Shown here is a 173-nucleotide sequence from Streptomyces agglomeratus, a member of the family "c-di-AMP riboswitch aptamer (ydaO/yuaA leader)". The match comes from Rfam's covariance-model search (57 bits). Lineage of the source: Bacteria > Actinomycetes > Kitasatosporales > Streptomycetaceae > Streptomyces. From the family's description: This family represents a conserved RNA structure found upstream of the ydaO and yuaA genes in Bacillus subtilis and related genes in other bacteria.
RNA sequence: ACGCGUAAAGCGCCGUAGGCAGGAGCGGGGGACCCAGGUAGGCGCCGGGGGCCGGACGUCGGAAGACGUACGGAAACCGGCUUGGGGUUAAGGCGCGCGACGCGAGUCGCGCGGCCGGGCACUCAUUGGCCCGAACCCGACAGCUCACCUCGUAGGCGUCGGUGAGGAGAUGU
Numbered sequence: 001a002c003g004c005g006u007a008a009a010g011c012g013c014c015g016u017a018g019g020c021a022g023g024a025g026c027g028g029g030g031g032a033c034c035c036a037g038g039u040a041g042g043c044g045c046c047g048g049g050g051g052c053c054g055g056a057c058g059u060c061g062g063a064a065g066a067c068g069u070a071c072g073g074a075a076a077c078c079g080g081c082u083u084g085g086g087g088u089u090a091a092g093g094c095g096c097g098c099g100a101c102g103c104g105a106g107u108c109g110c111g112c113g114g115c116c117g118g119g120c121a122c123u124c125a126u127u128g129g130c131c132c133g134a135a136c137c138c139g140a141c142a143g144c145u146c147a148c149c150u151c152g153u154a155g156g157c158g159u160c161g162g163u164g165a166g167g168a169g170a171u172g173u
Stems, first nucleotide, its partner, number of pairs: 011158004025153006035084005085138003094113008117132004